[Rfam]
RNA sequence: UGUGUAGAUGUUGAAGGAGCGUUCACGUCGCGGUCCCUGUCAGGUAUCUGUUUACCUGCCAAUCCUUCU
Numbered sequence: 001u002g003u004g005u006a007g008a009u010g011u012u013g014a015a016g017g018a019g020c021g022u023u024c025a026c027g028u029c030g031c032g033g034u035c036c037c038u039g040u041c042a043g044g045u046a047u048c049u050g051u052u053u054a055c056c057u058g059c060c061a062a063u064c065c066u067u068c069u
Stems, first nucleotide, its partner, number of pairs: 004037001007034001009032001013068006019031003041058006